The family of this 72-nucleotide sequence from Alligator mississippiensis is "mir-153 microRNA precursor family". A search with the family's covariance model found it, with a score of 79 bits. Rfam links the family to the GO terms RISC complex and miRNA-mediated post-transcriptional gene silencing. For this family Rfam cites "The developmental miRNA profiles of zebrafish as determined by small RNA cloning" (Chen et al., Genes Dev, 2005). The source organism's lineage runs through Eukaryota, Craniata, Gnathostomata, Dipnotetrapodomorpha and Alligator.
RNA sequence: GCCGGGGGCAUUUUUGUGAUUUGCAGCUCGUGGUCUGGGUCCAGUUGCAUAGUCACAAAAGUGAUCGUCGGC
Number, nucleotide and partner (000 for none) at each position: 001g000002c071003c070004g069005g068006g000007g066008g000009c063010a062011u061012u060013u059014u058015u057016g056017u055018g054019a053020u052021u000022u049023g048024c047025a046026g045027c044028u043029c000030g000031u000032g000033g000034u000035c000036u000037g000038g000039g000040u000041c000042c000043a028044g027045u026046u025047g024048c023049a022050u000051a000052g020053u019054c018055a017056c016057a015058a014059a013060a012061g011062u010063g009064a000065u000066c007067g000068u005069c004070g003071g002072c000